[Rfam]
RNA sequence: UACUCUCUCCGUCCCAAAAUAAACCAACCUCGUACUAGGAAGUGUCAUAUACUAGUACGGGAUUGACUUAUUUUGGGACGGAGGGAGUAG
Number, nucleotide and partner (000 for none) at each position: 001u089002a088003c087004u086005c085006u084007c083008u082009c081010c080011g079012u078013c077014c076015c075016a074017a073018a072019a071020u070021a069022a068023a000024c000025c065026a064027a063028c000029c061030u060031c059032g058033u057034a056035c055036u000037a000038g052039g000040a050041a000042g000043u000044g000045u000046c000047a000048u000049a000050u040051a000052c038053u000054a000055g035056u034057a033058c032059g031060g030061g029062a000063u027064u026065g025066a000067c000068u022069u021070a020071u019072u018073u017074u016075g015076g014077g013078a012079c011080g010081g009082a008083g007084g006085g005086a004087g003088u002089a001090g000

MIR1862 microRNA precursor family: a 90-nucleotide RNA sequence from Oryza sativa. The match comes from Rfam's covariance-model search (86 bits). NCBI's taxonomy places the organism under Eukaryota, Streptophyta, Magnoliopsida, Oryzinae, Oryza sativa.